[Rfam]
RNA: eL15-Euryarchaeota ribosomal protein leader
RNA sequence: CCUGUCCACACAGGUCGGGAUGUGAUCCCCAGCCGUCGGGGCUCGAGGAUUGAACCAGCAA
Numbered sequence: 001c002c003u004g005u006c007c008a009c010a011c012a013g014g015u016c017g018g019g020a021u022g023u024g025a026u027c028c029c030c031a032g033c034c035g036u037c038g039g040g041g042c043u044c045g046a047g048g049a050u051u052g053a054a055c056c057a058g059c060a061a
Base pairs, nucleotide, nucleotide: 001014002013003012004011005010017056018055024051025050026049027048028047
Dot-bracket structure: (((((....)))))..((.....(((((..................)))))...)).....